[Rfam]
RNA sequence: UGGGUGGCAUCGUAAGAGCUGCACCAUUUUAUUUUGUGUCAAUUUUUAAUACUGCUCAUAUCUUUACGAAUGAGACAUAUUU
Numbered sequence: 001u002g003g004g005u006g007g008c009a010u011c012g013u014a015a016g017a018g019c020u021g022c023a024c025c026a027u028u029u030u031a032u033u034u035u036g037u038g039u040c041a042a043u044u045u046u047u048a049a050u051a052c053u054g055c056u057c058a059u060a061u062c063u064u065u066a067c068g069a070a071u072g073a074g075a076c077a078u079a080u081u082u
Stems, first nucleotide, its partner, number of pairs: 001026003004022005010017002053077002055074005061069002

This 82-nucleotide sequence from Clostridium oryzae belongs to the Rfam family "pan motif". The family's RNA type in Rfam is cis-regulatory element. The family's consensus secondary structure is taken from published work.